[Rfam]
RNA sequence: GAAUUUUGAUUAAUUCUCAGCUCCGGCUGAGACAACUGGAAG
Number, nucleotide and partner (000 for none) at each position: 001g000002a000003a000004u000005u000006u000007u000008g000009a000010u000011u000012a000013a000014u000015u032016c031017u030018c029019a028020g027021c026022u000023c000024c000025g000026g021027c020028u019029g018030a017031g016032a015033c000034a000035a000036c000037u000038g000039g000040a000041a000042g000